Shown here is a 74-nucleotide sequence from Branchiostoma floridae, a member of the family "mir-4900 microRNA precursor family".
Rfam's curators put it in the seed alignment.
Gene Ontology terms of the family: RISC complex and miRNA-mediated post-transcriptional gene silencing.
The family's consensus secondary structure was predicted with RNAalifold.
RNA sequence: GCUAAGAGUUUUUCUUCCUUGGCACAGCUCUGUGACAGUGGAACAUAGCUGGCUGGCGAAGAAAUGCCCUUCCA
Numbered sequence: 001g002c003u004a005a006g007a008g009u010u011u012u013u014c015u016u017c018c019u020u021g022g023c024a025c026a027g028c029u030c031u032g033u034g035a036c037a038g039u040g041g042a043a044c045a046u047a048g049c050u051g052g053c054u055g056g057c058g059a060a061g062a063a064a065u066g067c068c069c070u071u072c073c074a
Base pairs, nucleotide, nucleotide: 005070006069008067009066011064012063013062014061015060016059017058019056020055021054022053025051026050027049028048029047031045032044033043